[Rfam]
RNA sequence: GGCAAAAGAGCAAGGAACGGAAUCCAAGUGCAGCUGGAAAAUAGAGCAAAACAGCUGCUUUUGGGAUUCCGUUGCCCAUUCUUAAGCCU
Numbered sequence: 001g002g003c004a005a006a007a008g009a010g011c012a013a014g015g016a017a018c019g020g021a022a023u024c025c026a027a028g029u030g031c032a033g034c035u036g037g038a039a040a041a042u043a044g045a046g047c048a049a050a051a052c053a054g055c056u057g058c059u060u061u062u063g064g065g066a067u068u069c070c071g072u073u074g075c076c077c078a079u080u081c082u083u084a085a086g087c088c089u
Stems, first nucleotide, its partner, number of pairs: 009080002017072007024064004030058007
RNA: mir-191 microRNA precursor family